[Rfam]
RNA: U4atac minor spliceosomal RNA
Organism: Channa argus
RNA sequence: ACUUUCCUUGUCAUGGGGUGGUUUGGGCAGCUCAAUGAACGAAACGUGAGAGUUCCCCUGCUGACACCAUAUCGACACAUACGCACCACCUGAGCUCCAAGUUCGGGAUCUGGUGCAAUUUUUGGAACC
Numbered sequence: 001a002c003u004u005u006c007c008u009u010g011u012c013a014u015g016g017g018g019u020g021g022u023u024u025g026g027g028c029a030g031c032u033c034a035a036u037g038a039a040c041g042a043a044a045c046g047u048g049a050g051a052g053u054u055c056c057c058c059u060g061c062u063g064a065c066a067c068c069a070u071a072u073c074g075a076c077a078c079a080u081a082c083g084c085a086c087c088a089c090c091u092g093a094g095c096u097c098c099a100a101g102u103u104c105g106g107g108a109u110c111u112g113g114u115g116c117a118a119u120u121u122u123u124g125g126a127a128c129c
Stems, first nucleotide, its partner, number of pairs: 006018004021061002026056002029053001031052003039047002083116006089107006